The record is a 372-nucleotide sequence from Leucobacter chromiisoli, which matches "transfer-messenger RNA" in Rfam.
It scores 161 bits against the family's covariance model.
[Rfam]
RNA sequence: GGGGCCGAUCGGUUUCGACACGUCGAUUUGAGACUGUGAGAAGCGGGUCGAGGACGCGAAGUUAUCUCGUAAACGCCCUUCGCAAACCAUAGGUGCCAACGCUAAGCGCACCGACUUCGCUCUCGCUGCCUAAGCACGAGACCGAGUCCGUCAAGUUCGGGUUCGUCCCCGCCCCGAUACUUGGCGUCAUUUAGGGGACUCGCUGGUGCGUCGCGUCUCGGGGCGCACCGGGACUCUCACCGAGGCUGGGCCUGUCGCUCGAGGUGUCCGUGACACAGAGCGGGGCCGAGUAGAACGCUUGCACGGACUACGCCCGUAGAAGGCACGGAAUCAUCGAAGUGGACCGGGGUUCGAUUCCCCGCGGCUCCACGA
Dot-bracket structure: (((((((...........(((.(((((......(((((.....((((([[[[[..((((((...]]]]]........)))))).....................................(((((.(((....)))))))).......((((((.((.((((..[[[[[[)))).))...)))))).......]]]]]]...(((((((((...[.[[....)))))))))............]].].(((((..(((..(.(..[[[[...[).)...))))))))............]....]]]]...))))).......)))))....))))).)))...(((((.......))))))))))))....
Taxonomically the source falls in Leucobacter (Bacteria, Bacillati, Actinomycetes, Micrococcales). From the family's description: Bacterial tmRNA, also known as 10Sa RNA or SsrA, is named for its dual tRNA and mRNA-like properties.